[Rfam]
RNA sequence: UCCAGUAACACGCUUAAUCUCCUAACGGAGAACGGGGGAACCAAAUGUGGAAGCUUUGCAUGACCUGAUUAGUCGGCAAAGGCGGAAGCAUUGAUCCAAAUGGGGUGAAUUUCGCAACCCUGCAUCGGGCACGUACGAGAUCGUCAUGAUCCGCCGAUAGCAGAGCGAAUAGGGCAGGAUCUCUAGCCCGAAUCCGACAGCUAACCUCGUAAGCGAAUAAGAGAGAUCAA
Numbered sequence: 001u002c003c004a005g006u007a008a009c010a011c012g013c014u015u016a017a018u019c020u021c022c023u024a025a026c027g028g029a030g031a032a033c034g035g036g037g038g039a040a041c042c043a044a045a046u047g048u049g050g051a052a053g054c055u056u057u058g059c060a061u062g063a064c065c066u067g068a069u070u071a072g073u074c075g076g077c078a079a080a081g082g083c084g085g086a087a088g089c090a091u092u093g094a095u096c097c098a099a100a101u102g103g104g105g106u107g108a109a110u111u112u113c114g115c116a117a118c119c120c121u122g123c124a125u126c127g128g129g130c131a132c133g134u135a136c137g138a139g140a141u142c143g144u145c146a147u148g149a150u151c152c153g154c155c156g157a158u159a160g161c162a163g164a165g166c167g168a169a170u171a172g173g174g175c176a177g178g179a180u181c182u183c184u185a186g187c188c189c190g191a192a193u194c195c196g197a198c199a200g201c202u203a204a205c206c207u208c209g210u211a212a213g214c215g216a217a218u219a220a221g222a223g224a225g226a227u228c229a230a
Stems, first nucleotide, its partner, number of pairs: 011215004018031003032210006042102002103195003111169004172189004